[Rfam]
RNA sequence: UACUGUUAGUGAUGAUUUUAAAAUUAAAACAGAUGGGAAUCUCUCUGAAAGAAAAUGGAGAUUAACCUUAAACUGAAACAGUA
Number, nucleotide and partner (000 for none) at each position: 001u083002a082003c081004u080005g079006u078007u077008a000009g000010u000011g000012a000013u000014g000015a000016u000017u000018u000019u000020a000021a000022a000023a000024u000025u000026a000027a000028a000029a000030c000031a000032g000033a000034u000035g000036g000037g000038a000039a000040u000041c000042u000043c000044u000045c000046u000047g000048a000049a000050a000051g000052a000053a000054a000055a000056u000057g000058g000059a000060g000061a000062u000063u000064a000065a000066c000067c000068u000069u000070a000071a000072a000073c000074u000075g000076a000077a007078a006079c005080a004081g003082u002083a001
RNA: Small nucleolar RNA SNORD79
Organism: Saimiri boliviensis